A member of the RNA family "Small nucleolar RNA SNORA41" from Phyllostomus discolor, 135 nucleotides long. The family has 31 seed sequences and 676 matches in Rfam 15.1. From the family's description: ACA41 is a member of the H/ACA class of snoRNA that guide the sites of modification of uridines to pseudouridines.

[Rfam]
RNA sequence: UUCCACAGCUACUGGUCUGCCGCUCUUCUUGUGGUGGCAGUUGUGACAUUCCUCUGUGGGAAAGGAAGUGUUACAUGAUUAAACACCUCUUCCUUAGCAAAACAGAAAAUGAGCAUAUAUGUGUGACAAACACAA
Numbered sequence: 001u002u003c004c005a006c007a008g009c010u011a012c013u014g015g016u017c018u019g020c021c022g023c024u025c026u027u028c029u030u031g032u033g034g035u036g037g038c039a040g041u042u043g044u045g046a047c048a049u050u051c052c053u054c055u056g057u058g059g060g061a062a063a064g065g066a067a068g069u070g071u072u073a074c075a076u077g078a079u080u081a082a083a084c085a086c087c088u089c090u091u092c093c094u095u096a097g098c099a100a101a102a103c104a105g106a107a108a109a110u111g112a113g114c115a116u117a118u119a120u121g122u123g124u125g126a127c128a129a130a131c132a133c134a135a
Base pairs, nucleotide, nucleotide: 003059004058005057006056018045019044020043022041023040024039073124074123075122076121077120086113088111090108091107093105094104